[Rfam]
The family of this 249-nucleotide RNA from Negativicoccus succinicivorans is "Bacterial large signal recognition particle RNA". By type it is a non-coding RNA gene.
RNA sequence: CGUUGCGGCAUCAUCCGUAAGAAAUGACGGUACGGAAGUAUUGCGCUUUCGUACCGUUUUUUGUAUAAUGAAAUAACCGGCGACUGUGCAGAGGUCGUUUAUGGCAACCUUUCGGGGCUUGUGCAAUGGAAGUUCGUGAACCCUGUCAGGUCCGAGAGGAAGCAGCAGUAAGCGAAUCCUUUCAUGUGCCACGAGGUAACUCGGGAGGUUGUCAUAAACGGUUUCUGCCGGUAACCGGAUAUCGCAGCG
Numbered sequence: 001c002g003u004u005g006c007g008g009c010a011u012c013a014u015c016c017g018u019a020a021g022a023a024a025u026g027a028c029g030g031u032a033c034g035g036a037a038g039u040a041u042u043g044c045g046c047u048u049u050c051g052u053a054c055c056g057u058u059u060u061u062u063g064u065a066u067a068a069u070g071a072a073a074u075a076a077c078c079g080g081c082g083a084c085u086g087u088g089c090a091g092a093g094g095u096c097g098u099u100u101a102u103g104g105c106a107a108c109c110u111u112u113c114g115g116g117g118c119u120u121g122u123g124c125a126a127u128g129g130a131a132g133u134u135c136g137u138g139a140a141c142c143c144u145g146u147c148a149g150g151u152c153c154g155a156g157a158g159g160a161a162g163c164a165g166c167a168g169u170a171a172g173c174g175a176a177u178c179c180u181u182u183c184a185u186g187u188g189c190c191a192c193g194a195g196g197u198a199a200c201u202c203g204g205g206a207g208g209u210u211g212u213c214a215u216a217a218a219c220g221g222u223u224u225c226u227g228c229c230g231g232u233a234a235c236c237g238g239a240u241a242u243c244g245c246a247g248c249g
Base pairs, nucleotide, nucleotide: 001249002248003247004246005245006244007243009070010069011068073242074241075240077238078237079236083232084231085230086229088228089227090226091225092224093223094222095221096220097219099218100217101215102214103213104212105211106210109207110206111205112204113203114202115201116200118195119194120193121192122191123190124186125185127184128183129182130181131180132177133176134175135174136173137172143168144167145166146165151160152159153158
Rfam links the family to the GO terms SRP-dependent cotranslational protein targeting to membrane, signal sequence recognition and signal recognition particle, plasma membrane targeting.
The source organism's lineage runs through Bacteria, Negativicutes, Veillonellales, Veillonellaceae and Negativicoccus.
From the family's description: The signal recognition particle (SRP) is a universally conserved ribonucleoprotein involved in the co-translational targeting of proteins to membranes.
On this family, see Rosenblad et al., RNA Biol 2009: "Kinship in the SRP RNA family".
A search with the family's covariance model found it, with a score of 96 bits.